Shown here is a 117-nucleotide sequence, a member of the family "Betaproteobacteria-1 RNA". The base pairs follow the family's consensus structure, which is taken from published work. By type it is a small RNA.
[Rfam]
RNA sequence: CGCUGAAUUGGACGCGCACUGGCGGUAGCAAUCAGGGACAGCUCUACUACGGGAUAGGUGUUGAGACAGAGCAAGGGGUGGCGAAGUGAGUGCCCCUACAUCGAACGACUGACGGGU
Numbered sequence: 001c002g003c004u005g006a007a008u009u010g011g012a013c014g015c016g017c018a019c020u021g022g023c024g025g026u027a028g029c030a031a032u033c034a035g036g037g038a039c040a041g042c043u044c045u046a047c048u049a050c051g052g053g054a055u056a057g058g059u060g061u062u063g064a065g066a067c068a069g070a071g072c073a074a075g076g077g078g079u080g081g082c083g084a085a086g087u088g089a090g091u092g093c094c095c096c097u098a099c100a101u102c103g104a105a106c107g108a109c110u111g112a113c114g115g116g117u
Stems, first nucleotide, its partner, number of pairs: 001037001003035003007032004025050004041072005058101004074097006086113002089110003